RNA sequence: GGAAGUGUGUGCUAGUGAUGGCACAGCUGAACAUUGAUCGCUAACGUAGAAAUAUGGCAGAUCUGCUCAGUGGGUGUUGUCACGUGGUCGCUUCAAGUAGCUUGUGUUCGGCUCCCGAUUGCGCGUGUAGGUUCGAGGUGUUUUUACAUUCACCUCGGAUUUGCACGCCUGCACGGUUGAGUCUUCACGUCGCUCCUCGAACUACCGCGAUUUCCAAAUUGGGGGGCAAUCGAAUAGGUCAGACGAGGUUAAAUUUGUCGCUUCCAUAUACAGGCACUGCAGAUAGCAGUAUGCCAUUGUUUUU
Numbered sequence: 001g002g003a004a005g006u007g008u009g010u011g012c013u014a015g016u017g018a019u020g021g022c023a024c025a026g027c028u029g030a031a032c033a034u035u036g037a038u039c040g041c042u043a044a045c046g047u048a049g050a051a052a053u054a055u056g057g058c059a060g061a062u063c064u065g066c067u068c069a070g071u072g073g074g075u076g077u078u079g080u081c082a083c084g085u086g087g088u089c090g091c092u093u094c095a096a097g098u099a100g101c102u103u104g105u106g107u108u109c110g111g112c113u114c115c116c117g118a119u120u121g122c123g124c125g126u127g128u129a130g131g132u133u134c135g136a137g138g139u140g141u142u143u144u145u146a147c148a149u150u151c152a153c154c155u156c157g158g159a160u161u162u163g164c165a166c167g168c169c170u171g172c173a174c175g176g177u178u179g180a181g182u183c184u185u186c187a188c189g190u191c192g193c194u195c196c197u198c199g200a201a202c203u204a205c206c207g208c209g210a211u212u213u214c215c216a217a218a219u220u221g222g223g224g225g226g227c228a229a230u231c232g233a234a235u236a237g238g239u240c241a242g243a244c245g246a247g248g249u250u251a252a253a254u255u256u257g258u259c260g261c262u263u264c265c266a267u268a269u270a271c272a273g274g275c276a277c278u279g280c281a282g283a284u285a286g287c288a289g290u291a292u293g294c295c296a297u298u299g300u301u302u303u304u
Stems, first nucleotide, its partner, number of pairs: 001265007015083005027070003032065002036063004040058004273295003276290005
RNA: Arthropod 7SK RNA